[Rfam]
Shown here is an 87-nucleotide RNA from Cicer arietinum, a member of the family "Small nucleolar RNA Z43". Rfam classes the family as a C/D-box small nucleolar RNA. The organism belongs to Cicer, within Eukaryota. The literature on the family includes a 2003 paper in Nucleic Acids Res by Chen et al., "The high diversity of snoRNAs in plants: identification and comparative study of 120 snoRNA genes from Oryza sativa".
RNA sequence: UGACAAUGAUGACCCUAUUUGAUUAGGUCUCGUUCGUCGUAAUUGGCCAAGUUGGCCUUGCCGAUCAUCCUCUUAUAUUCUGAGUCC
Numbered sequence: 001u002g003a004c005a006a007u008g009a010u011g012a013c014c015c016u017a018u019u020u021g022a023u024u025a026g027g028u029c030u031c032g033u034u035c036g037u038c039g040u041a042a043u044u045g046g047c048c049a050a051g052u053u054g055g056c057c058u059u060g061c062c063g064a065u066c067a068u069c070c071u072c073u074u075a076u077a078u079u080c081u082g083a084g085u086c087c
Stems, first nucleotide, its partner, number of pairs: 002086003049059002